[Rfam]
RNA sequence: GUGAGGUAGUAAGUUGUAUUGUUGUGGGGUAGGGAUAUUAGGCCCCAAUUAGAAGAUAACUAUACAACUUACUACUUUC
Numbered sequence: 001g002u003g004a005g006g007u008a009g010u011a012a013g014u015u016g017u018a019u020u021g022u023u024g025u026g027g028g029g030u031a032g033g034g035a036u037a038u039u040a041g042g043c044c045c046c047a048a049u050u051a052g053a054a055g056a057u058a059a060c061u062a063u064a065c066a067a068c069u070u071a072c073u074a075c076u077u078u079c
Base pairs, nucleotide, nucleotide: 001079003078004077005076006075007074008073009072010071011070012069013068014067015066016065017064018063019062021060022059027046028045029044049054
Notes:
Rfam assigns this 79-nucleotide RNA to the family "let-7 microRNA precursor family". The family is grouped with related families in Rfam's "let-7 microRNA precursor clan". Rfam links the family to the GO terms RISC complex and miRNA-mediated post-transcriptional gene silencing. The family has 64 seed sequences and 8,694 matches in Rfam 15.1. From the family's description: This family represents the microRNAs (miRNA) let-7 and mir-98. let-7 was identified from a study of developmental timing in C. elegans, and was later shown to be part of a much larger class of non-coding RNAs termed miRNAs. On this family, see Rougvie, Nat Rev Genet 2001: "Control of developmental timing in animals".